[Rfam]
RNA sequence: GCACCCGUAGCUCAAUUGGAUAGAGCACCAGACUACGAAUCUGGGGGUUAGAGGUUCGAGUCCUCUCGGGUGCG
Numbered sequence: 001g002c003a004c005c006c007g008u009a010g011c012u013c014a015a016u017u018g019g020a021u022a023g024a025g026c027a028c029c030a031g032a033c034u035a036c037g038a039a040u041c042u043g044g045g046g047g048u049u050a051g052a053g054g055u056u057c058g059a060g061u062c063c064u065c066u067c068g069g070g071u072g073c074g
Base pairs, nucleotide, nucleotide: 001073002072003071004070005069006068007067010026011025012024013023028044029043030042031041032040050066051065052064053063054062
A member of the RNA family "tRNA" from Acidisoma silvae, 74 nucleotides long. It scores 70 bits against the family's covariance model. NCBI's taxonomy places the organism under Bacteria, Pseudomonadati, Pseudomonadota, Alphaproteobacteria, Acidisoma. The family's RNA type in Rfam is transfer RNA.